RNA sequence: AGGCAGCCCCCUAGCGAAAAAAGGUUGAUAAGGGAGGUGUUGUUCUACUUGUAGAUUGAUUUUUAGCUCUUCAGAACUGCUGAUAUUUGUGAUGAUGCAGAUCUAGUAACGCUGAAGUAUAUA
Numbered sequence: 001a002g003g004c005a006g007c008c009c010c011c012u013a014g015c016g017a018a019a020a021a022a023g024g025u026u027g028a029u030a031a032g033g034g035a036g037g038u039g040u041u042g043u044u045c046u047a048c049u050u051g052u053a054g055a056u057u058g059a060u061u062u063u064u065a066g067c068u069c070u071u072c073a074g075a076a077c078u079g080c081u082g083a084u085a086u087u088u089g090u091g092a093u094g095a096u097g098c099a100g101a102u103c104u105a106g107u108a109a110c111g112c113u114g115a116a117g118u119a120u121a122u123a
Base pairs, nucleotide, nucleotide: 002041003040004039005038007037008036009034010033011032012031013029015027016026061117062116063115066112067111068109073104074103075102077100079098080097085090
RNA: Small nucleolar RNA snoR77